The record is a 126-nucleotide sequence, which matches "DUF3800-I RNA" in Rfam.
Actinobacteria, Firmicutes, Fusobacteria, Proteobacteria (1 example), Tenericutes (2 examples).
[Rfam]
RNA sequence: UUUACUUACAGGUUGAAAAAACACUGUUAAAUCAAGUGGGUAAGAGAUUGAUCAAUUAAGCGUAUGUAAAGUACGUCUCCCCACUUGGAAAGGUCUUGUUAUGGUAACAAGACCUUUUUUGAUUAU
Numbered sequence: 001u002u003u004a005c006u007u008a009c010a011g012g013u014u015g016a017a018a019a020a021a022c023a024c025u026g027u028u029a030a031a032u033c034a035a036g037u038g039g040g041u042a043a044g045a046g047a048u049u050g051a052u053c054a055a056u057u058a059a060g061c062g063u064a065u066g067u068a069a070a071g072u073a074c075g076u077c078u079c080c081c082c083a084c085u086u087g088g089a090a091a092g093g094u095c096u097u098g099u100u101a102u103g104g105u106a107a108c109a110a111g112a113c114c115u116u117u118u119u120u121g122a123u124u125a126u
Stems, first nucleotide, its partner, number of pairs: 007029001008027004012022003033087006044079003047056003060076006090116012